[Rfam]
RNA sequence: AUGUCUUAAACUCAUGGGUAAGGAAAAAACAGUGGGGGUGACACCUGAAUCCUCACUGCUAACGUGAGAUGGACUUUUGAGUGGGUAAAGGUUGCCCCUAAGGUGACCUGCCUACUUUGUGGGAUACCUGGGAGCUGCAAUCUGCCCA
Numbered sequence: 001a002u003g004u005c006u007u008a009a010a011c012u013c014a015u016g017g018g019u020a021a022g023g024a025a026a027a028a029a030c031a032g033u034g035g036g037g038g039u040g041a042c043a044c045c046u047g048a049a050u051c052c053u054c055a056c057u058g059c060u061a062a063c064g065u066g067a068g069a070u071g072g073a074c075u076u077u078u079g080a081g082u083g084g085g086u087a088a089a090g091g092u093u094g095c096c097c098c099u100a101a102g103g104u105g106a107c108c109u110g111c112c113u114a115c116u117u118u119g120u121g122g123g124a125u126a127c128c129u130g131g132g133a134g135c136u137g138c139a140a141u142c143u144g145c146c147c148a
Stems, first nucleotide, its partner, number of pairs: 004023005032051001033048001035046003052068005082148005089143007098132002101129005107123005
The family of this 148-nucleotide RNA from Sus scrofa is "U12 minor spliceosomal RNA". The family has 62 seed sequences and 2,106 matches in Rfam 15.1. The match comes from Rfam's covariance-model search (107 bits). The family's RNA type in Rfam is spliceosomal small nuclear RNA. Its Rfam clan is "U2 clan". The base pairs follow the family's consensus structure.